[Rfam]
Description
Rfam assigns this 79-nucleotide sequence from Megasphaera paucivorans to the family "ZMP/ZTP riboswitch aptamer (pfl RNA motif)". Pairs were carried over by alignment from the consensus structure, which is taken from published work.
RNA sequence: UUAGAAUUAUGUGACUGACGGAAGUGGAGCAACCACAUGAAGCAUAAUUUCUGAUAAGCCGACCGUCUGGGCAAAGGGC
Numbered sequence: 001u002u003a004g005a006a007u008u009a010u011g012u013g014a015c016u017g018a019c020g021g022a023a024g025u026g027g028a029g030c031a032a033c034c035a036c037a038u039g040a041a042g043c044a045u046a047a048u049u050u051c052u053g054a055u056a057a058g059c060c061g062a063c064c065g066u067c068u069g070g071g072c073a074a075a076g077g078g079c
Stems, first nucleotide, its partner, number of pairs: 004050009015039001017067005024036004058072003